[Rfam]
RNA: Gammaprotebacteria rimP leader
Organism: Ferrimonas lipolytica
RNA sequence: AGCAAUGAAACUCUAAACAGGGUAUAGCUAACUUUAAGCCCCGUUUUAACAACGGGGUUUUUUGUAUUCUGGCGUUGGUGAAAUCGUAUUUUGAUUUUAUUGUGCUGCUGUCCCUUGGGGUUUGGCUACUAAAUACUAUGGUAUAAGUAGUCGGGUAUUAGGGCUGUUAGCCCUUUUUUU
Numbered sequence: 001a002g003c004a005a006u007g008a009a010a011c012u013c014u015a016a017a018c019a020g021g022g023u024a025u026a027g028c029u030a031a032c033u034u035u036a037a038g039c040c041c042c043g044u045u046u047u048a049a050c051a052a053c054g055g056g057g058u059u060u061u062u063u064g065u066a067u068u069c070u071g072g073c074g075u076u077g078g079u080g081a082a083a084u085c086g087u088a089u090u091u092u093g094a095u096u097u098u099a100u101u102g103u104g105c106u107g108c109u110g111u112c113c114c115u116u117g118g119g120g121u122u123u124g125g126c127u128a129c130u131a132a133a134u135a136c137u138a139u140g141g142u143a144u145a146a147g148u149a150g151u152c153g154g155g156u157a158u159u160a161g162g163g164c165u166g167u168u169a170g171c172c173c174u175u176u177u178u179u180u
Stems, first nucleotide, its partner, number of pairs: 036060008161173004